[Rfam]
Description:
The family of this 124-nucleotide RNA from Handroanthus impetiginosus is "Small nucleolar RNA snoR77". For this family Rfam cites "Experimental RNomics: identification of 140 candidates for small non-messenger RNAs in the plant Arabidopsis thaliana" (Marker et al., Curr Biol, 2002). Lineage of the source: Eukaryota > Euphyllophyta > Lamiales > Crescentiina > Handroanthus. Rfam links the family to the GO terms RNA processing and nucleolus.
RNA sequence: AGGCAACCUCCUCUCUUUGUAUACAAUGGAAAGGGUGGUGUUAAUCUGCUCAUAUAUCAAUACUUUUGCUCUUCAGACUUGCUGAGUAUCUCCAUGAAGCUGGUCUAGUAAGCCUAAGGACAUC
Numbered sequence: 001a002g003g004c005a006a007c008c009u010c011c012u013c014u015c016u017u018u019g020u021a022u023a024c025a026a027u028g029g030a031a032a033g034g035g036u037g038g039u040g041u042u043a044a045u046c047u048g049c050u051c052a053u054a055u056a057u058c059a060a061u062a063c064u065u066u067u068g069c070u071c072u073u074c075a076g077a078c079u080u081g082c083u084g085a086g087u088a089u090c091u092c093c094a095u096g097a098a099g100c101u102g103g104u105c106u107a108g109u110a111a112g113c114c115u116a117a118g119g120a121c122a123u124c
Stems, first nucleotide, its partner, number of pairs: 002042004007038002009035004014030003063118003068113003075106005081100003086092001